[Rfam]
RNA sequence: UUAGCACUUUCACAGGUUCUCGCCUAGACAGUGGGGCCAGGAUUUGAUAGCUGGUGCUGAGAGAAAACCUUGACUGCAUCCUUGCCCUGGUGCUGUACCAGUGACAGCUGUCACUCAGUGAGACAGAC
Numbered sequence: 001u002u003a004g005c006a007c008u009u010u011c012a013c014a015g016g017u018u019c020u021c022g023c024c025u026a027g028a029c030a031g032u033g034g035g036g037c038c039a040g041g042a043u044u045u046g047a048u049a050g051c052u053g054g055u056g057c058u059g060a061g062a063g064a065a066a067a068c069c070u071u072g073a074c075u076g077c078a079u080c081c082u083u084g085c086c087c088u089g090g091u092g093c094u095g096u097a098c099c100a101g102u103g104a105c106a107g108c109u110g111u112c113a114c115u116c117a118g119u120g121a122g123a124c125a126g127a128c
Stems, first nucleotide, its partner, number of pairs: 003058006013046003017042004023035003068122001069120001070118004075113002078111002082107003086103001087101004
Rfam assigns this 128-nucleotide RNA sequence from Heterocephalus glaber to the family "Small nucleolar RNA SNORA30/SNORA37 family". The family has 11 seed sequences and 407 matches in Rfam 15.1. About the family: The members of this family belong to the H/ACA class of snoRNAs that guide the sites of modification of uridines to pseudouridines. A reference for the family is Huttenhofer et al. (2001), "RNomics: an experimental approach that identifies 201 candidates for novel, small, non-messenger RNAs in mouse", EMBO J. Lineage of the source: Eukaryota > Craniata > Dipnotetrapodomorpha > Theria > Heterocephalus. Rfam classes the family as an H/ACA-box small nucleolar RNA.